[Rfam]
Shown here is a 132-nucleotide sequence from Cervus elaphus, a member of the family "Small nucleolar RNA SNORA22".
The family's RNA type in Rfam is H/ACA-box small nucleolar RNA.
RNA sequence: UAGCACAGUGAGCACCAAGAGUGCUUUAGUUCCUUGGUUCUGACUCUGCUACUGUAAUGUCUGUUCUUUUCCUCUACACUGAAAGGGCUAUUUAUUUAUCCUUUUAAAAGUAUUGAGAAAGUCAGCACAUUA
Numbered sequence: 001u002a003g004c005a006c007a008g009u010g011a012g013c014a015c016c017a018a019g020a021g022u023g024c025u026u027u028a029g030u031u032c033c034u035u036g037g038u039u040c041u042g043a044c045u046c047u048g049c050u051a052c053u054g055u056a057a058u059g060u061c062u063g064u065u066c067u068u069u070u071c072c073u074c075u076a077c078a079c080u081g082a083a084a085g086g087g088c089u090a091u092u093u094a095u096u097u098a099u100c101c102u103u104u105u106a107a108a109a110g111u112a113u114u115g116a117g118a119a120a121g122u123c124a125g126c127a128c129a130u131u132a
Stems, first nucleotide, its partner, number of pairs: 003049002007047002010045001013042002015037005021032001023030002051067001054064003073118003077110001080107001081105007